[Rfam]
RNA sequence: UGGAAGAAUCUGUUAAGCUCAGGAGGGAUAGCGCCAUGGAUGAAUCCACAAUCGAUCAUGCCCCUUAUAUUAUUGGGUUUUGAUCCCUCUAUAGCGCUAUCCAUCCUGAGUUUAAUCGGUUCUUCUU
Numbered sequence: 001u002g003g004a005a006g007a008a009u010c011u012g013u014u015a016a017g018c019u020c021a022g023g024a025g026g027g028a029u030a031g032c033g034c035c036a037u038g039g040a041u042g043a044a045u046c047c048a049c050a051a052u053c054g055a056u057c058a059u060g061c062c063c064c065u066u067a068u069a070u071u072a073u074u075g076g077g078u079u080u081u082g083a084u085c086c087c088u089c090u091a092u093a094g095c096g097c098u099a100u101c102c103a104u105c106c107u108g109a110g111u112u113u114a115a116u117c118g119g120u121u122c123u124u125c126u127u
Stems, first nucleotide, its partner, number of pairs: 010118001016112009026102009